[Rfam]
RNA sequence: GCGGGUGUGGCGGAAUGGUAGACGCAGAGCAUUCAAAAUGCUCCGGCCUUUGGCCGUGGGGGUUCGAGUCCCCCCACCCGUA
Numbered sequence: 001g002c003g004g005g006u007g008u009g010g011c012g013g014a015a016u017g018g019u020a021g022a023c024g025c026a027g028a029g030c031a032u033u034c035a036a037a038a039u040g041c042u043c044c045g046g047c048c049u050u051u052g053g054c055c056g057u058g059g060g061g062g063u064u065c066g067a068g069u070c071c072c073c074c075c076a077c078c079c080g081u082a
Stems, first nucleotide, its partner, number of pairs: 001081007010025003027043005058074005